Record summary:
The family of this 97-nucleotide RNA from Wenzhouxiangella sp. XN24 is "Burkholderia RNA 7 (anti-hemB)". The family's RNA type in Rfam is small RNA. The literature on the family includes a 2017 paper in Sci Rep by Sass et al., "Identification of small RNAs abundant in Burkholderia cenocepacia biofilms reveal putative regulators with a potential role in carbon and iron metabolism". Rfam describes the family as follows. This RNA motif was identified by computational search in b-proteobacteria Burkholderia. Co-purified with Hfq, expression confirmed by Northern blot.
RNA sequence: UCGCCCGCUGUCCUCCCUGAGCGGGCAAGCUGCCCGGUUUCCCCCAAGCCGGGCCAUGCUUUACCCCGGGGCACUUCGUUGCCCCGGGGUUUUUUUU
Number, nucleotide and partner (000 for none) at each position: 001u000002c000003g000004c025005c024006c023007g022008c021009u020010g000011u000012c000013c000014u000015c000016c000017c000018u000019g000020a009021g008022c007023g006024g005025g004026c000027a000028a000029g000030c000031u000032g054033c053034c052035c051036g050037g049038u048039u000040u000041c000042c000043c000044c000045c000046a000047a000048g038049c037050c036051g035052g034053g033054c032055c000056a000057u000058g000059c000060u000061u000062u000063a000064c089065c088066c087067c086068g085069g084070g083071g082072c081073a080074c000075u000076u000077c000078g000079u000080u073081g072082c071083c070084c069085c068086g067087g066088g065089g064090u000091u000092u000093u000094u000095u000096u000097u000